[Rfam]
The family of this 103-nucleotide RNA is "t44 RNA". A reference for the family is Tjaden et al. (2002), "Transcriptome analysis of Escherichia coli using high-density oligonucleotide probe arrays", Nucleic Acids Res. It scores 65 bits against the family's covariance model.
RNA sequence: ACAAGCCCAAACCAACGCCACACACGCAUCGGCACCGUCUUCGGGGUGCCGCGCGCAGCCGACGCUGCCGCGGUCGAAGCCGGGGAUGCGUGGAGGUCCCAAC
Numbered sequence: 001a002c003a004a005g006c007c008c009a010a011a012c013c014a015a016c017g018c019c020a021c022a023c024a025c026g027c028a029u030c031g032g033c034a035c036c037g038u039c040u041u042c043g044g045g046g047u048g049c050c051g052c053g054c055g056c057a058g059c060c061g062a063c064g065c066u067g068c069c070g071c072g073g074u075c076g077a078a079g080c081c082g083g084g085g086a087u088g089c090g091u092g093g094a095g096g097u098c099c100c101a102a103c
Base pairs, nucleotide, nucleotide: 023092024091025090026089027088028087029086030085035083036082037081039079040078041077042076043075048074049073050072051071052070